[Rfam]
RNA sequence: AAAUAGUGGAGCAGCGACCAUGAAAAAACGGGAGUAACCGAAAAUCCAAAAGAGUAGAAAAAAU
Number, nucleotide and partner (000 for none) at each position: 001a000002a000003a000004u000005a000006g021007u020008g019009g018010a000011g000012c000013a000014g000015c000016g000017a000018c009019c008020a007021u006022g000023a000024a000025a000026a000027a000028a000029c000030g000031g047032g046033a045034g000035u000036a000037a000038c000039c057040g000041a000042a000043a000044a000045u033046c032047c031048a000049a000050a000051a000052g000053a000054g000055u000056a000057g039058a000059a000060a000061a000062a000063a000064u000

Rfam assigns this 64-nucleotide RNA sequence from Chitinophaga niastensis to the family "DUF805 RNA". The organism belongs to Chitinophaga, within Bacteria.